Annotation
The record is a 129-nucleotide RNA sequence, which matches "Hairpin ribozyme 1 from viruses-like metatranscriptomes" in Rfam. Rfam links the family to the GO term RNA nuclease activity.
[Rfam]
RNA sequence: CGUCUGUCUCGACAACGUCUCACUCAAAUAGAGACCACCAAUCGUCGAAGAAGACGGGACAAGAAACACCGCGUAGUUUUUGAAACUAUAAUAGUAUGACUUUUUCAUACCGCGGGCACAUUACUGUCC
Dot-bracket structure: ((((....(((((...((((...........))))........)))))....))))(((((.......(((((.....................................))))).........)))))
Numbered sequence: 001c002g003u004c005u006g007u008c009u010c011g012a013c014a015a016c017g018u019c020u021c022a023c024u025c026a027a028a029u030a031g032a033g034a035c036c037a038c039c040a041a042u043c044g045u046c047g048a049a050g051a052a053g054a055c056g057g058g059a060c061a062a063g064a065a066a067c068a069c070c071g072c073g074u075a076g077u078u079u080u081u082g083a084a085a086c087u088a089u090a091a092u093a094g095u096a097u098g099a100c101u102u103u104u105u106c107a108u109a110c111c112g113c114g115g116g117c118a119c120a121u122u123a124c125u126g127u128c129c
Stems, first nucleotide, its partner, number of pairs: 001056004009048005017035004057129005069115005
Pairs were carried over by alignment from the consensus structure, which is taken from published work.